[Rfam]
RNA sequence: CUUGAUCGACCCGAGCCACAGCGGGUGCUCGCGGCCCUGCCCGUAGGUGGACAGGAGCGCCUGCGCCUC
Numbered sequence: 001c002u003u004g005a006u007c008g009a010c011c012c013g014a015g016c017c018a019c020a021g022c023g024g025g026u027g028c029u030c031g032c033g034g035c036c037c038u039g040c041c042c043g044u045a046g047g048u049g050g051a052c053a054g055g056a057g058c059g060c061c062u063g064c065g066c067c068u069c
Stems, first nucleotide, its partner, number of pairs: 014026001016024002028065001030063001032059002037054003041050003
The family of this 69-nucleotide sequence from Actinomadura rubteroloni is "ASpks TB sRNA". Rfam classes the family as an antisense RNA. A search with the family's covariance model found it, with a score of 70 bits.